[Rfam]
RNA sequence: CCUGGGACUCGCGUCCCAGGCUUUAUGCUGCCAUGGCUUCGCCAUU
Numbered sequence: 001c002c003u004g005g006g007a008c009u010c011g012c013g014u015c016c017c018a019g020g021c022u023u024u025a026u027g028c029u030g031c032c033a034u035g036g037c038u039u040c041g042c043c044a045u046u
Stems, first nucleotide, its partner, number of pairs: 001020008033045005
The record is a 46-nucleotide sequence from Rosistilla oblonga, which matches "Acido-Lenti-1 RNA" in Rfam.
The family's RNA type in Rfam is small RNA.
Pairs were carried over by alignment from the consensus structure, which is taken from published work.
NCBI's taxonomy places the organism under Bacteria, Pseudomonadati, Planctomycetia, Pirellulaceae, Rosistilla.